[Rfam]
Rfam assigns this 307-nucleotide RNA sequence from Ooceraea biroi to the family "Arthropod 7SK RNA". Pairs were carried over by alignment from the consensus structure, which is taken from published work. For this family Rfam cites "Arthropod 7SK RNA" (Gruber et al., Mol Biol Evol, 2008). Its Rfam clan is "7SK clan". The match comes from Rfam's covariance-model search (148 bits).
RNA sequence: GGAAGUGUGUGCUAGUGAUGGCACAGCUGAACAUUGAUCGCUAACGUAAAUCUUAUGGCAGAUCUGCUCAGUGGGUGUUGUCACGUUGUCGUAAGCUUCAAGUAGCUUGGUGUGUCAGGCUCCCGAUUGCGCGUGCAUCUUCGUGGUUUUCGCAAUCUCGGAUUUGCACGCCUGCACGGUCGAGUCCUUCACGUCGCUCCUCGAAGUACCGCGAUUUCCAAAUUGGGGGGCAAUCGAAUAGGUCAGACGAGGUAAUUUGUCGCUUCCAUAUACAGGCACUGUGGAUUGCAGUAUGCCCUUUUUUUGG
Numbered sequence: 001g002g003a004a005g006u007g008u009g010u011g012c013u014a015g016u017g018a019u020g021g022c023a024c025a026g027c028u029g030a031a032c033a034u035u036g037a038u039c040g041c042u043a044a045c046g047u048a049a050a051u052c053u054u055a056u057g058g059c060a061g062a063u064c065u066g067c068u069c070a071g072u073g074g075g076u077g078u079u080g081u082c083a084c085g086u087u088g089u090c091g092u093a094a095g096c097u098u099c100a101a102g103u104a105g106c107u108u109g110g111u112g113u114g115u116c117a118g119g120c121u122c123c124c125g126a127u128u129g130c131g132c133g134u135g136c137a138u139c140u141u142c143g144u145g146g147u148u149u150u151c152g153c154a155a156u157c158u159c160g161g162a163u164u165u166g167c168a169c170g171c172c173u174g175c176a177c178g179g180u181c182g183a184g185u186c187c188u189u190c191a192c193g194u195c196g197c198u199c200c201u202c203g204a205a206g207u208a209c210c211g212c213g214a215u216u217u218c219c220a221a222a223u224u225g226g227g228g229g230g231c232a233a234u235c236g237a238a239u240a241g242g243u244c245a246g247a248c249g250a251g252g253u254a255a256u257u258u259g260u261c262g263c264u265u266c267c268a269u270a271u272a273c274a275g276g277c278a279c280u281g282u283g284g285a286u287u288g289c290a291g292u293a294u295g296c297c298c299u300u301u302u303u304u305u306g307g
Stems, first nucleotide, its partner, number of pairs: 001267007015084005027071003032066002036064004040059004046053001275297003278292005